[Rfam]
RNA sequence: UUGACUCGCUGAAUUAGUGAUUGGCGAGUUGUAUCUUUAAACUCUUAUUUAUUGGAGACAAUUAUGUCACUAAGUACACAAGAAACAGCAACAAUCCUUGCUGAGUAUGCAGUUAAAGAA
Numbered sequence: 001u002u003g004a005c006u007c008g009c010u011g012a013a014u015u016a017g018u019g020a021u022u023g024g025c026g027a028g029u030u031g032u033a034u035c036u037u038u039a040a041a042c043u044c045u046u047a048u049u050u051a052u053u054g055g056a057g058a059c060a061a062u063u064a065u066g067u068c069a070c071u072a073a074g075u076a077c078a079c080a081a082g083a084a085a086c087a088g089c090a091a092c093a094a095u096c097c098u099u100g101c102u103g104a105g106u107a108u109g110c111a112g113u114u115a116a117a118g119a120a
Stems, first nucleotide, its partner, number of pairs: 007026006052073004057068001
Ribosomal S15 leader: a 120-nucleotide sequence from Paraglaciecola arctica. Its Rfam clan is "Ribosomal Protein S15 Leader clan". A reference for the family is Benard et al. (1996), "Pseudoknot and translational control in the expression of the S15 ribosomal protein", Biochimie. The family's RNA type in Rfam is cis-regulatory leader. Pairs were carried over by alignment from the consensus structure, which is taken from published work. From the family's description: The E. coli Ribosomal S15 gene 5' UTR can form two alternative structures. One that is a series of three hairpins, The other includes a pseudoknot. This structure causes translational regulation of the S15 protein. The alignment of this family contains only the final two hairpins which are conserved in other species, and also includes the complete region that forms the alternate structures.